[Rfam]
RNA sequence: GGGUGUGUAACUCAGUUGGUAGAGUGUGCGCUUCGCAUUUCGUGUAUGCGUAAAGUCAGGUGUUCGAUUCGCCUCUCAUCCA
Numbered sequence: 001g002g003g004u005g006u007g008u009a010a011c012u013c014a015g016u017u018g019g020u021a022g023a024g025u026g027u028g029c030g031c032u033u034c035g036c037a038u039u040u041c042g043u044g045u046a047u048g049c050g051u052a053a054a055g056u057c058a059g060g061u062g063u064u065c066g067a068u069u070c071g072c073c074u075c076u077c078a079u080c081c082a
Stems, first nucleotide, its partner, number of pairs: 001081005007075001010025004027052005058074005
RNA: tRNA
Organism: Rickenella mellea